[Rfam]
Shown here is a 133-nucleotide sequence from Pasteurella multocida, a member of the family "Haemophilus regulatory RNA responsive to iron". The family's consensus secondary structure was predicted with CMfinder. The literature on the family includes a 2014 paper in PLoS One by Santana et al., "HrrF is the Fur-regulated small RNA in nontypeable Haemophilus influenzae". From the family's description: Involved in iron homeostasis in Haemophilus species. Orthologues exist only among other Pasteurellacae. The source organism's lineage runs through Bacteria, Pseudomonadati, Pasteurella, Pasteurella multocida and Pasteurella multocida subsp. multocida. Rfam classes the family as a small RNA.
RNA sequence: ACAUCUGUUAGAGAUAAAGGUGGGAAUGAUAGAGUAGAUCGUUUUCAGUCUGAGUCAUACUCCAAACAGGUAGAGUAGAAAGUAAAUUCGUUAGGGUAUUUAUGGGCUGAAGGUUUAAACUUCAGCCUUUUUU
Numbered sequence: 001a002c003a004u005c006u007g008u009u010a011g012a013g014a015u016a017a018a019g020g021u022g023g024g025a026a027u028g029a030u031a032g033a034g035u036a037g038a039u040c041g042u043u044u045u046c047a048g049u050c051u052g053a054g055u056c057a058u059a060c061u062c063c064a065a066a067c068a069g070g071u072a073g074a075g076u077a078g079a080a081a082g083u084a085a086a087u088u089c090g091u092u093a094g095g096g097u098a099u100u101u102a103u104g105g106g107c108u109g110a111a112g113g114u115u116u117a118a119a120c121u122u123c124a125g126c127c128u129u130u131u132u133u
Base pairs, nucleotide, nucleotide: 003071004070005069006068007067008066047061048060049059051057052056086097087096088095089094102132104128105127106126107125108124109123110122111121112120